Record summary:
The record is a 115-nucleotide RNA from Ulvibacter antarcticus, which matches "Bacteroidete tryptophan peptide leader RNA" in Rfam. It is annotated as a cis-regulatory leader. The match comes from Rfam's covariance-model search (68 bits). NCBI's taxonomy places the organism under Bacteria, Bacteroidota, Flavobacteriia, Flavobacteriales, Ulvibacter. Rfam links the family to the GO terms regulation of gene expression and S-adenosylmethionine metabolic process. Pairs were carried over by alignment from the consensus structure, which is taken from published work.

RNA sequence: AUAUAUUUGAAAUUCAAAUUAUGAUAACAAUUAUAACAAAUAGCUGGUGGUGGAAUAAAUUACGUCGAACGUCGUGAUCUAAAGCACUAUUAGUAUAUCCAUACAAAGGCUUGUC
Numbered sequence: 001a002u003a004u005a006u007u008u009g010a011a012a013u014u015c016a017a018a019u020u021a022u023g024a025u026a027a028c029a030a031u032u033a034u035a036a037c038a039a040a041u042a043g044c045u046g047g048u049g050g051u052g053g054a055a056u057a058a059a060u061u062a063c064g065u066c067g068a069a070c071g072u073c074g075u076g077a078u079c080u081a082a083a084g085c086a087c088u089a090u091u092a093g094u095a096u097a098u099c100c101a102u103a104c105a106a107a108g109g110c111u112u113g114u115c
Stems, first nucleotide, its partner, number of pairs: 036098001038096001043094005049088004056082001057080001059078003062072003